[Rfam]
RNA sequence: GAUCCGAUAGUAUGGUAGAAAGAAAUAUAUGAACCUUUCUACCACACUAUCUAUUAUUGUUAUUGUAUUGUAUAAAGUAUAAAGU
Dot-bracket structure: .....((((((.(((((((((((....)......)))))))))).))))))..................................
A member of the RNA family "Plastid-psbM 3UTR RNA" from Platanus occidentalis, 85 nucleotides long. Rfam's curators put it in the seed alignment. The family's consensus secondary structure was predicted with LocARNA. Rfam classes the family as a cis-regulatory element. From the family's description: Plastid psbM is a non-coding RNA (ncRNA) recognised in plastids. It was found in the three prime untranslated region (3UTR) of psbM gene, its 3UTR location suggests a role in transcript maturation.